Nuclear RNase P: a 413-nucleotide sequence from Pichia kudriavzevii. The base pairs follow the family's consensus structure, which is taken from published work. Rfam's curators write: Ribonuclease P (RNase P) is a ubiquitous endoribonuclease, found in archaea, bacteria and eukarya as well as chloroplasts and mitochondria. Its best characterised activity is the generation of mature 5'-ends of tRNAs by cleaving the 5'-leader elements of precursor-tRNAs. The source organism's lineage runs through Eukaryota, Ascomycota, saccharomyceta, Pichiomycetes and Pichia.

RNA sequence: GCCGUUGCCAAUAGUCCAUGCGUACUCGUAUACAAAAGGAUUCCAUUAAGUAAUCAAUUAUUUAAGCGAGUGGGAAAUUCGGUGGUAUGCGCCGUCCCCGGGCUUUCUCUCUAAUAGAGUAGCUCGGUCCCCUGGAUAGCUUAUUGCUGUCUUCCUCUUGAGAGGUUCCUGGGCGUGCAAGCGCCGGGCAGUUCCACAAGAAAUUUCUGGGGGGCGAUGCGGAGAGAAAAAGAAGGGUUUCCCACGAAUCCCGUCUCUCGUCUCCCCCGUCGCCCUCCACUGGGAGUGUUCUGCGGACGGUUGGCCCUUUAAAUUGGUACUUGCUUGUACAACUUUGGAGGGCUGUUGAGUGCAAUGCGUGGAUCCUUGUCAUCUUGACAUGGAAACUCGAUACCGAUCACUAUGGUGACGGU
Numbered sequence: 001g002c003c004g005u006u007g008c009c010a011a012u013a014g015u016c017c018a019u020g021c022g023u024a025c026u027c028g029u030a031u032a033c034a035a036a037a038g039g040a041u042u043c044c045a046u047u048a049a050g051u052a053a054u055c056a057a058u059u060a061u062u063u064a065a066g067c068g069a070g071u072g073g074g075a076a077a078u079u080c081g082g083u084g085g086u087a088u089g090c091g092c093c094g095u096c097c098c099c100g101g102g103c104u105u106u107c108u109c110u111c112u113a114a115u116a117g118a119g120u121a122g123c124u125c126g127g128u129c130c131c132c133u134g135g136a137u138a139g140c141u142u143a144u145u146g147c148u149g150u151c152u153u154c155c156u157c158u159u160g161a162g163a164g165g166u167u168c169c170u171g172g173g174c175g176u177g178c179a180a181g182c183g184c185c186g187g188g189c190a191g192u193u194c195c196a197c198a199a200g201a202a203a204u205u206u207c208u209g210g211g212g213g214g215c216g217a218u219g220c221g222g223a224g225a226g227a228a229a230a231a232g233a234a235g236g237g238u239u240u241c242c243c244a245c246g247a248a249u250c251c252c253g254u255c256u257c258u259c260g261u262c263u264c265c266c267c268c269g270u271c272g273c274c275c276u277c278c279a280c281u282g283g284g285a286g287u288g289u290u291c292u293g294c295g296g297a298c299g300g301u302u303g304g305c306c307c308u309u310u311a312a313a314u315u316g317g318u319a320c321u322u323g324c325u326u327g328u329a330c331a332a333c334u335u336u337g338g339a340g341g342g343c344u345g346u347u348g349a350g351u352g353c354a355a356u357g358c359g360u361g362g363a364u365c366c367u368u369g370u371c372a373u374c375u376u377g378a379c380a381u382g383g384a385a386a387c388u389c390g391a392u393a394c395c396g397a398u399c400a401c402u403a404u405g406g407u408g409a410c411g412g413u
Stems, first nucleotide, its partner, number of pairs: 001413004008406003015361001017359001019357001024071005039055004044050001080396005094298004154165004172185005188294004194288001211278002364384003368380003